[Rfam]
A member of the RNA family "Group II catalytic intron D1-D4-2" from Clostridium ljungdahlii, 117 nucleotides long. Rfam describes the family as follows. Group II introns are found in rRNA, tRNA and mRNA of organelles in fungi, plants and protists, and also in mRNA in bacteria. A search with the family's covariance model found it, with a score of 89 bits. The literature on the family includes a 2001 paper in EMBO J by Chu et al., "Control of branch-site choice by a group II intron". Rfam 15.1 lists 1,231 matches to the family in 625 species.
RNA sequence: GGAGGAAGGUCCUCCGAUGGGGAUUGAGAAGGCAGACCCAUCAAACAACCCUAUGCUGCUGUAGUCAAAAGCUAUGGUAGUGAGCAAUUAGGGAAAAGGCUAUCAAAAAUAGUCAUG
Numbered sequence: 001g002g003a004g005g006a007a008g009g010u011c012c013u014c015c016g017a018u019g020g021g022g023a024u025u026g027a028g029a030a031g032g033c034a035g036a037c038c039c040a041u042c043a044a045a046c047a048a049c050c051c052u053a054u055g056c057u058g059c060u061g062u063a064g065u066c067a068a069a070a071g072c073u074a075u076g077g078u079a080g081u082g083a084g085c086a087a088u089u090a091g092g093g094a095a096a097a098g099g100c101u102a103u104c105a106a107a108a109a110u111a112g113u114c115a116u117g
Base pairs, nucleotide, nucleotide: 001015002014003013004012005011016042017041018040019039020038021037024035025034026033046117047116049093050092051091052090053089054087055081056080058078059077060076062074063073064072065071098114099113100112101111102110103109